[Rfam]
THF-II riboswitch (folE RNA): a 39-nucleotide RNA from Nitratireductor basaltis. On this family, see Xu et al., Nucleic Acids Res 2023: "Structural insights into translation regulation by the THF-II riboswitch". The family's RNA type in Rfam is cis-regulatory element. Gene Ontology term of the family: regulation of gene expression.
RNA sequence: CCGUUCAACUCGUUCCGGCUCCGAUCGGGACUACGGGAG
Number, nucleotide and partner (000 for none) at each position: 001c036002c035003g034004u033005u000006c000007a000008a000009c000010u000011c000012g031013u030014u029015c028016c027017g026018g025019c000020u000021c000022c000023g000024a000025u018026c017027g016028g015029g014030a013031c012032u000033a004034c003035g002036g001037g000038a000039g000